[Rfam]
RNA sequence: GGCUGGUCCAAGUACAGUAGUGUUUACAACUAUAUGAUCACAACCAGUUACAGAUUUCUUUGUUCCUUCUCCAUCCCCACUGCUUUACUUGACUAGCCAAAA
Numbered sequence: 001g002g003c004u005g006g007u008c009c010a011a012g013u014a015c016a017g018u019a020g021u022g023u024u025u026a027c028a029a030c031u032a033u034a035u036g037a038u039c040a041c042a043a044c045c046a047g048u049u050a051c052a053g054a055u056u057u058c059u060u061u062g063u064u065c066c067u068u069c070u071c072c073a074u075c076c077c078c079a080c081u082g083c084u085u086u087a088c089u090u091g092a093c094u095a096g097c098c099a100a101a102a
Base pairs, nucleotide, nucleotide: 001098002097003096004095005094006093007092008091010090011089014086016081017080018079020077022076028064029063030062032060
The family of this 102-nucleotide RNA is "Y RNA". The sequence is in the family's curated seed alignment. About the family: Y RNAs are components of the Ro ribonucleoprotein particle (Ro RNP), in association with Ro60 and La proteins. The Y RNAs and Ro60 and La proteins are well conserved, but the function of the Ro RNP is not known. In humans the RNA component can be one of four small RNAs -- hY1, hY3, hY4 and hY5. These small RNAs are predicted to fold into a conserved secondary structure containing three stem structures. By type it is a non-coding RNA gene.